[Rfam]
Nucleotides: 176
Stems, first nucleotide, its partner, number of pairs: 006171006016078004021073004033062005082115004086109008116142002119139008144161007
Number, partner (000 for none) and nucleotide at each position: 001000a002000a003000c004000a005000a006171u007170g008169a009168u010167a011166g012000a013000g014000g015000c016078g017077c018076g019075g020000c021073g022072c023071u024070c025000a026000u027000c028000a029000g030000u031000a032000c033062c034061u035060u036059c037058c038000a039000a040000c041000c042000u043000c044000c045000g046000g047000c048000a049000g050000g051000c052000a053000a054000c055000c056000g057000g058037g059036g060035a061034a062033g063000c064000g065000a066000a067000a068000g069000g070024g071023g072022g073021c074000a075019c076018c077017g078016c079000c080000g081000a082115a083114g084113g085112g086109c087108u088107u089106c090105u091104c092103g093102g094000g095000u096000u097000c098000c099000u100000g101000c102093c103092u104091g105090a106089g107088g108087g109086g110000u111000g112085u113084c114083c115082u116142g117141g118000g119139u120138c121137g122136g123135c124134a125133g126132a127000g128000a129000a130000g131000a132126u133125c134124u135123g136122c137121c138120g139119g140000a141117c142116u143000g144161c145160c146159a147158u148157u149156g150155u151000c152000a153000a154000a155150a156149c157148g158147a159146u160145g161144g162000a163000g164000c165000g166011c167010u168009a169008u170007c171006a172000u173000g174000g175000g176000a